[Rfam]
RNA sequence: UUCUUAUUAAGAGCGACGGAGGUUCAAGGGCCUGUGAAGUCGCGGCAACCCCAGAGAUGGAAGGUGCCGGCCGGAGCCGCAAAAAAGCGGAGCAAUAAGAA
Numbered sequence: 001u002u003c004u005u006a007u008u009a010a011g012a013g014c015g016a017c018g019g020a021g022g023u024u025c026a027a028g029g030g031c032c033u034g035u036g037a038a039g040u041c042g043c044g045g046c047a048a049c050c051c052c053a054g055a056g057a058u059g060g061a062a063g064g065u066g067c068c069g070g071c072c073g074g075a076g077c078c079g080c081a082a083a084a085a086a087g088c089g090g091a092g093c094a095a096u097a098a099g100a101a
Stems, first nucleotide, its partner, number of pairs: 001101008013043005021032003044068004049064002051060003077090004
The family of this 101-nucleotide RNA from Anaerostipes sp. 992a is "SAM riboswitch aptamer (S box leader)".
The base pairs follow the family's consensus structure, which is taken from published work.
From the family's description: The SAM riboswitch is found upstream of a number of genes which code for proteins involved in methionine or cysteine biosynthesis in Gram-positive bacteria.